[Rfam]
RNA sequence: AUGCCACUGUGUAAUAUGGCUUUUUAUUCCUAUGUGAUGAUGAAAAGUGUUCAUGUAGGAACAGAAGCCAUUUUACACGUGGUGA
Numbered sequence: 001a002u003g004c005c006a007c008u009g010u011g012u013a014a015u016a017u018g019g020c021u022u023u024u025u026a027u028u029c030c031u032a033u034g035u036g037a038u039g040a041u042g043a044a045a046a047g048u049g050u051u052c053a054u055g056u057a058g059g060a061a062c063a064g065a066a067g068c069c070a071u072u073u074u075a076c077a078c079g080u081g082g083u084g085a
Stems, first nucleotide, its partner, number of pairs: 002084006009078006016071008027061011